[Rfam]
The family of this 85-nucleotide sequence from Phtheirospermum japonicum is "Small nucleolar RNA Z221/R21b".
The family's consensus secondary structure was predicted with WAR.
A reference for the family is Chen et al. (2003), "The high diversity of snoRNAs in plants: identification and comparative study of 120 snoRNA genes from Oryza sativa", Nucleic Acids Res.
It is annotated as a C/D-box small nucleolar RNA.
NCBI's taxonomy places the organism under Eukaryota, Embryophyta, Mesangiospermae, Lamiales, Phtheirospermum.
Rfam 15.1 lists 588 matches to the family in 222 species.
RNA sequence: GGGCGGUGAUGAUAAUUUAGAGAAAGUCAUGCACCACUCUGAUCGCGUGAUGAUAACUUCUCAUACCCAAUCAACUUCUGAGCCC
Numbered sequence: 001g002g003g004c005g006g007u008g009a010u011g012a013u014a015a016u017u018u019a020g021a022g023a024a025a026g027u028c029a030u031g032c033a034c035c036a037c038u039c040u041g042a043u044c045g046c047g048u049g050a051u052g053a054u055a056a057c058u059u060c061u062c063a064u065a066c067c068c069a070a071u072c073a074a075c076u077u078c079u080g081a082g083c084c085c
Stems, first nucleotide, its partner, number of pairs: 001085004